Rfam assigns this 73-nucleotide RNA to the family "skipping-rope RNA". It is annotated as a small RNA. Pairs were carried over by alignment from the consensus structure, which is taken from published work.
RNA sequence: AGCAUUAGAGGAUGGAAAUGGCAUCCAUCGCCCAAUGUUAGGAGAUGCAGGAAAAGUCGCCCUGCCUAAUGCA
Numbered sequence: 001a002g003c004a005u006u007a008g009a010g011g012a013u014g015g016a017a018a019u020g021g022c023a024u025c026c027a028u029c030g031c032c033c034a035a036u037g038u039u040a041g042g043a044g045a046u047g048c049a050g051g052a053a054a055a056g057u058c059g060c061c062c063u064g065c066c067u068a069a070u071g072c073a
Stems, first nucleotide, its partner, number of pairs: 002072007011029005019059004031042001047065005